Record summary:
Shown here is a 184-nucleotide RNA from Candidatus Macondimonas diazotrophica, a member of the family "6S / SsrS RNA". Rfam's curators write: E. coli 6S RNA was the first non coding RNA to be sequenced, but its function was unknown until recently. It consists of 184 nucleotides that fold into an extended hairpin structure with a large single-stranded internal bulge. The 6S RNA specifically associates with RNA polymerase holoenzyme containing the sigma70 specificity factor. The base pairs follow the family's consensus structure, which is taken from published work. By type it is a non-coding RNA gene.
[Rfam]
RNA sequence: CGCCUCCUGCGGUGUUCGAGGGCUGCCCAGGGUACCCUUGAGCCUAAAUGCAAACCCAGGGCCGAACCGAAUGGCGCCCUUGUGCAUGUCCGCUUCAUCGCGGAAAGCCUUCCAGCUCCAUCGUUCUGCCCACUUGAACCGCUGGUUCAAGGUCACGGUCGGCCACGGCACAGGCGGGAGGCGU
Numbered sequence: 001c002g003c004c005u006c007c008u009g010c011g012g013u014g015u016u017c018g019a020g021g022g023c024u025g026c027c028c029a030g031g032g033u034a035c036c037c038u039u040g041a042g043c044c045u046a047a048a049u050g051c052a053a054a055c056c057c058a059g060g061g062c063c064g065a066a067c068c069g070a071a072u073g074g075c076g077c078c079c080u081u082g083u084g085c086a087u088g089u090c091c092g093c094u095u096c097a098u099c100g101c102g103g104a105a106a107g108c109c110u111u112c113c114a115g116c117u118c119c120a121u122c123g124u125u126c127u128g129c130c131c132a133c134u135u136g137a138a139c140c141g142c143u144g145g146u147u148c149a150a151g152g153u154c155a156c157g158g159u160c161g162g163c164c165a166c167g168g169c170a171c172a173g174g175c176g177g178g179a180g181g182c183g184u
Stems, first nucleotide, its partner, number of pairs: 002182009012171004017167002034153003039149006059131003064126004070121001072120003076116002084108002089104005